[Rfam]
RNA: Purine riboswitch aptamer
Nucleotides: 098
Stems, first nucleotide, its partner, number of pairs: 019083007030046005056074006
Number, partner (000 for none) and nucleotide at each position: 001000u002000c003000a004000g005000u006000a007000a008000u009000u010000u011000a012000u013000a014000u015000u016000u017000u018000g019083a020082c021081c022080u023079a024078u025077a026000u027000a028000u029000c030046c031045c032044c033043u034042g035000a036000a037000u038000a039000u040000g041000g042034c043033a044032g045031g046030g047000a048000g049000u050000c051000u052000c053000u054000a055000c056074c057073a058072g059071a060070a061069a062000c063000c064000g065000a066000g067000a068000a069061u070060u071059u072058c073057u074056g075000a076000c077025u078024a079023u080022g081021g082020g083019u084000g085000a086000a087000a088000u089000u090000g091000a092000u093000g094000g095000g096000u097000a098000u